Shown here is a 128-nucleotide sequence from Cicer arietinum, a member of the family "Small nucleolar RNA SNORA69". Pairs were carried over by alignment from the consensus structure, which was predicted with PFOLD. U69 is a member of the H/ACA class of small nucleolar RNAs (snoRNAs) which act as guides in the the modification of uridines to pseudouridines. It is annotated as an H/ACA-box small nucleolar RNA. It scores 49 bits against the family's covariance model.
[Rfam]
Nucleotides: 128
Stems, first nucleotide, its partner, number of pairs: 003052006016039009063122010079106002082103009
Number, partner (000 for none) and nucleotide at each position: 001000u002000g003052g004051g005050u006049g007048g008047g009000c010000a011000u012000a013000u014000u015000a016039c017038a018037g019036c020035g021034c022033u023032u024031u025000u026000g027000u028000g029000a030000g031024a032023a033022a034021g035020c036019g037018c038017u039016g040000u041000a042000a043000u044000a045000u046000g047008c048007c049006c050005a051004c052003c053000c054000a055000u056000a057000u058000a059000u060000g061000a062000g063122u064121u065120a066119u067118g068117g069116g070115u071114g072113u073000g074000c075000a076000u077000u078000u079106u080105a081000g082103a083102g084101c085100g086099c087098u088097u089096u090095u091000u092000u093000g094000a095090g096089a097088a098087a099086g100085c101084g102083c103082u104000g105080u106079a107000a108000a109000a110000u111000g112000a113072a114071c115070a116069c117068c118067c119066a120065u121064a122063a123000c124000u125000c126000a127000u128000a